[Rfam]
RNA sequence: UGCCCAACAAUAUCCUGGUGCUGAGUGAGUUGCAGACAGAGACUCCAGCAUCAGUGAUUUUGUUG
Numbered sequence: 001u002g003c004c005c006a007a008c009a010a011u012a013u014c015c016u017g018g019u020g021c022u023g024a025g026u027g028a029g030u031u032g033c034a035g036a037c038a039g040a041g042a043c044u045c046c047a048g049c050a051u052c053a054g055u056g057a058u059u060u061u062g063u064u065g
Base pairs, nucleotide, nucleotide: 006064007063008062009061010060012058013057014056015054016053017052018051019050020049021048022047023046
Annotation
The family of this 65-nucleotide RNA sequence from Chloroceryle aenea is "mir-338 microRNA precursor family". NCBI's taxonomy places the organism under Eukaryota, Dipnotetrapodomorpha, Coelurosauria, Telluraves, Chloroceryle. The literature on the family includes a 2010 paper in Nucleic Acids Res by Meiri et al., "Discovery of microRNAs and other small RNAs in solid tumors". The family's consensus secondary structure was predicted with RNAalifold.